[Rfam]
RNA: Plastid-psbA-3 3UTR RNA
Organism: Solanum lycopersicum
RNA sequence: AAAAGAGCAAUAAUCAUUUUCUUGUUCUUUCAAGAGGGUAUUAUUGCUCCUUUCUUU
Numbered sequence: 001a002a003a004a005g006a007g008c009a010a011u012a013a014u015c016a017u018u019u020u021c022u023u024g025u026u027c028u029u030u031c032a033a034g035a036g037g038g039u040a041u042u043a044u045u046g047c048u049c050c051u052u053u054c055u056u057u
Stems, first nucleotide, its partner, number of pairs: 001053003005049010019036006